Histone 3' UTR stem-loop: a 45-nucleotide sequence from Alligator mississippiensis. The family's consensus secondary structure is taken from published work. Rfam classes the family as a cis-regulatory element. NCBI's taxonomy places the organism under Eukaryota, Opisthokonta, Metazoa, Archosauria, Alligator. A search with the family's covariance model found it, with a score of 44 bits. Rfam links the family to the GO term mRNA 3'-end processing by stem-loop binding and cleavage. From the family's description: The mRNAs of metazoan histone genes lack a poly-A tail. 3' end processing occurs at a site between a highly conserved stem-loop (modelled by this family) and a purine rich region around 20 nts downstream (the histone downstream element, or HDE). The stem-loop is bound by a 31 kDa stem-loop binding protein (SLBP - also termed the histone hairpin binding protein, or HBP). Together with U7 snRNA binding of the HDE, SLBP binding nucleate s the formation of the processing complex.

[Rfam]
RNA sequence: CCAACGGCUCUUUUAAGAGCCACCCACAUUUUCCAGAAAGAGCUG
Numbered sequence: 001c002c003a004a005c006g007g008c009u010c011u012u013u014u015a016a017g018a019g020c021c022a023c024c025c026a027c028a029u030u031u032u033c034c035a036g037a038a039a040g041a042g043c044u045g
Base pairs, nucleotide, nucleotide: 006021007020008019009018010017011016